[Rfam]
RNA sequence: UUUGCAUUGAUGAGGACAGAAACAUAAACUAUAACCUAAGGGUUUCUGUUGGAUAGUUAGCAAU
Numbered sequence: 001u002u003u004g005c006a007u008u009g010a011u012g013a014g015g016a017c018a019g020a021a022a023c024a025u026a027a028a029c030u031a032u033a034a035c036c037u038a039a040g041g042g043u044u045u046c047u048g049u050u051g052g053a054u055a056g057u058u059a060g061c062a063a064u
Base pairs, nucleotide, nucleotide: 002063003062004061005060015050016049017048018047019046020045021044022043023042030038031037
The family of this 64-nucleotide RNA sequence from Castor canadensis is "Selenocysteine insertion sequence 1". The source organism's lineage runs through Eukaryota, Gnathostomata, Boreoeutheria, Castoridae and Castor. The base pairs follow the family's consensus structure, which is taken from published work. The literature on the family includes a 1996 paper in RNA by Walczak et al., "A novel RNA structural motif in the selenocysteine insertion element of eukaryotic selenoprotein mRNAs". It is annotated as a cis-regulatory element. About the family: The incorporation of selenocysteine into a protein sequence is directed by an in-frame UGA codon (usually a stop codon) within the coding region of the mRNA. Selenoprotein mRNAs contain a conserved secondary structure in the 3' UTR that is required for the distinction of UGA stop from UGA selenocysteine. The match comes from Rfam's covariance-model search (36 bits).